Makes More Granules Regulator RNA (mmgR): a 77-nucleotide RNA from Novosphingobium colocasiae. From the family's description: SuhB later renamed mmgR (makes more granules regulator) was a putative non-coding RNA found multiple times in the Agrobacterium tumefaciens genome and related alpha-proteobacteria. Other non-coding RNAs uncovered in the same analysis include: speF, ybhL, metA, and serC.Several studies inSinorhizobium meliloti showed that suhB element is indeed a non-coding RNA:firstly it was detected on Northern blot and called Sm8RNA, secondly in an RNAseq study referred to as SmelC689.The mutant phenotype's (strain lacking the small RNA) cytoplasm contains higher content of polyhydroxybutyrate (PBH)storage granules than wild type strain. The sRNA is required to limit the PBH intracellular accumulation when the nitrogen-fixing Sinorhizobium meliloti is under condition of surplus carbon in relation to nitrogen. It has been renamed to mmgR. Further study confirmed that mmgR fine-tunes the regulation of PBH storage.Northern blot confirmed the expression of the sRNA in other rhizobia species. A reference for the family is Valverde et al. (2008), "Prediction of Sinorhizobium meliloti sRNA genes and experimental detection in strain 2011", BMC Genomics. The organism belongs to Novosphingobium, within Bacteria.

RNA sequence: GGGAGUUGCCUUUCAGGCAUCCUCUCCCAAACACUUCCAAGGGCUGGUCUUCGGACCAGCCCCUUUUUUUGGCACUU
Number, nucleotide and partner (000 for none) at each position: 001g000002g000003g000004a000005g000006u000007u000008g018009c017010c016011u015012u000013u000014c000015a011016g010017g009018c008019a000020u000021c000022c000023u000024c000025u000026c000027c000028c000029a000030a000031a000032c000033a000034c000035u000036u000037c000038c000039a000040a000041g062042g061043g060044c059045u058046g057047g056048u055049c054050u000051u000052c000053g000054g049055a048056c047057c046058a045059g044060c043061c042062c041063c000064u000065u000066u000067u000068u000069u000070u000071g000072g000073c000074a000075c000076u000077u000